[Rfam]
RNA sequence: AAUAUCAAAGGGCAAACCGGUGGAAAUGCCGGGACGCAAAAACAUAGGACCUAAGCUGAGCAUACAGUAUGGUAGCCGAUUGCACUG
Numbered sequence: 001a002a003u004a005u006c007a008a009a010g011g012g013c014a015a016a017c018c019g020g021u022g023g024a025a026a027u028g029c030c031g032g033g034a035c036g037c038a039a040a041a042a043c044a045u046a047g048g049a050c051c052u053a054a055g056c057u058g059a060g061c062a063u064a065c066a067g068u069a070u071g072g073u074a075g076c077c078g079a080u081u082g083c084a085c086u087g
Stems, first nucleotide, its partner, number of pairs: 012037002017032006040081002043078001047077002049073003056067003